RNA sequence: UGGCUUAUGGUGAUAGCAUAAAUUAUCUUAGUAGAUUUCAGUGAGAUUUUAUAGUCAAUGAUCUGAAUGUUACACACACUGAACCCA
Numbered sequence: 001u002g003g004c005u006u007a008u009g010g011u012g013a014u015a016g017c018a019u020a021a022a023u024u025a026u027c028u029u030a031g032u033a034g035a036u037u038u039c040a041g042u043g044a045g046a047u048u049u050u051a052u053a054g055u056c057a058a059u060g061a062u063c064u065g066a067a068u069g070u071u072a073c074a075c076a077c078a079c080u081g082a083a084c085c086c087a
Base pairs, nucleotide, nucleotide: 001087002086003085005083
RNA: Small nucleolar RNA R11/Z151